RNA sequence: AGUGGAAGUUGUGAUGAUUUAGUAUAAGAGUAGUGGACAGAUGUGAUAUCUGAGAAACCAUACGCUGACACU
Dot-bracket structure: ((((................................................................))))
RNA: Small nucleolar RNA SNORD75